[Rfam]
RNA sequence: GAUAGAUAGUAUGGUAGAAAGAAAUAGAUGAAUCUUUCUACCAUACUAUUUAUUAGUUAGAUUGUAGUGCGAAUUCCAACU
Number, nucleotide and partner (000 for none) at each position: 001g000002a000003u000004a000005g050006a049007u048008a047009g046010u045011a044012u043013g042014g041015u040016a039017g038018a037019a036020a035021g034022a033023a000024a000025u000026a000027g000028a000029u000030g000031a000032a000033u022034c021035u020036u019037u018038c017039u016040a015041c014042c013043a012044u011045a010046c009047u008048a007049u006050u005051u000052a000053u000054u000055a000056g000057u000058u000059a000060g000061a000062u000063u000064g000065u000066a000067g000068u000069g000070c000071g000072a000073a000074u000075u000076c000077c000078a000079a000080c000081u000
The family of this 81-nucleotide sequence from Anisodus acutangulus is "Plastid-psbM 3UTR RNA". A reference for the family is Richter et al. (2023), "Retrograde signaling in plants: A critical review focusing on the GUN pathway and beyond", Plant Commun. NCBI's taxonomy places the organism under Eukaryota, Streptophyta, Tracheophyta, Solanoideae, Anisodus. It is annotated as a cis-regulatory element. Rfam's curators write: Plastid psbM is a non-coding RNA (ncRNA) recognised in plastids. It was found in the three prime untranslated region (3UTR) of psbM gene, its 3UTR location suggests a role in transcript maturation. A search with the family's covariance model found it, with a score of 57 bits.